[Rfam]
RNA sequence: UAAUGACGCAAGGCCCAGCCCACGUGCAAGCCGUGGCCGCCCUCUUCGGAGGGCGCGGCGCUCAUGUCAAUAUG
Numbered sequence: 001u002a003a004u005g006a007c008g009c010a011a012g013g014c015c016c017a018g019c020c021c022a023c024g025u026g027c028a029a030g031c032c033g034u035g036g037c038c039g040c041c042c043u044c045u046u047c048g049g050a051g052g053g054c055g056c057g058g059c060g061c062u063c064a065u066g067u068c069a070a071u072a073u074g
Base pairs, nucleotide, nucleotide: 004069005068006067007066013059014058015057016030018037021035022034023033038055039054040053041052042051043050
RNA: Twister_sister_ribozyme